[Rfam]
Shown here is a 43-nucleotide RNA sequence from Gossypium gossypioides, a member of the family "Plastid-rpl16 group II-D1 intron".
The family's consensus secondary structure was predicted with LocARNA.
For this family Rfam cites "Retrograde signaling in plants: A critical review focusing on the GUN pathway and beyond" (Richter et al., Plant Commun, 2023).
Rfam's curators write: Plastid-rpl16 is a non-coding RNA (ncRNA) recognised in plastids.

RNA sequence: AACUUAAGUCAAUAAAGACUAAGAAGGUUGACUUAAGAACAUA
Numbered sequence: 001a002a003c004u005u006a007a008g009u010c011a012a013u014a015a016a017g018a019c020u021a022a023g024a025a026g027g028u029u030g031a032c033u034u035a036a037g038a039a040c041a042u043a
Stems, first nucleotide, its partner, number of pairs: 003037002006034008